[Rfam]
RNA sequence: AUGUGCAUGUGGCUGACUCUAAAACUGAACUUGGAACGGAGGAACCAGUAUUAGGGGCUAAUCUAUAUAGAGAGGCACCUUCCAGCCUUAGCCCGUCAGCUAACUCCGUAAGCUGUGGAAGGAACC
Numbered sequence: 001a002u003g004u005g006c007a008u009g010u011g012g013c014u015g016a017c018u019c020u021a022a023a024a025c026u027g028a029a030c031u032u033g034g035a036a037c038g039g040a041g042g043a044a045c046c047a048g049u050a051u052u053a054g055g056g057g058c059u060a061a062u063c064u065a066u067a068u069a070g071a072g073a074g075g076c077a078c079c080u081u082c083c084a085g086c087c088u089u090a091g092c093c094c095g096u097c098a099g100c101u102a103a104c105u106c107c108g109u110a111a112g113c114u115g116u117g118g119a120a121g122g123a124a125c126c
Stems, first nucleotide, its partner, number of pairs: 011114004018035005036109006046054001055094003063070002073088004
Source information: A member of the RNA family "c-di-AMP riboswitch aptamer (ydaO/yuaA leader)" from Calothrix sp. C42_A2020_038, 126 nucleotides long. Its family is annotated with regulation of gene expression and cyclic-di-AMP binding in the Gene Ontology. NCBI's taxonomy places the organism under Bacteria, Bacillati, Cyanophyceae, Nostocales, Calothrix.